RNA: Small nucleolar RNA SNORA25
Organism: Galemys pyrenaicus
RNA sequence: GGGUCAUUUCAAAGAGGGCUCUUGGACUCCAACCAGGAGCUCUUGACGCUGUGACCAAAGAUUGAGCCUCUCCCUGGGAUGAAGCGCGCACUCCCUCACUGGUGCUGUGUCUCCCCGAAGAGAGACAGGA
Numbered sequence: 001g002g003g004u005c006a007u008u009u010c011a012a013a014g015a016g017g018g019c020u021c022u023u024g025g026a027c028u029c030c031a032a033c034c035a036g037g038a039g040c041u042c043u044u045g046a047c048g049c050u051g052u053g054a055c056c057a058a059a060g061a062u063u064g065a066g067c068c069u070c071u072c073c074c075u076g077g078g079a080u081g082a083a084g085c086g087c088g089c090a091c092u093c094c095c096u097c098a099c100u101g102g103u104g105c106u107g108u109g110u111c112u113c114c115c116c117g118a119a120g121a122g123a124g125a126c127a128g129g130a
Stems, first nucleotide, its partner, number of pairs: 002056006014044008023036001025034001069123004076116003084108003088105005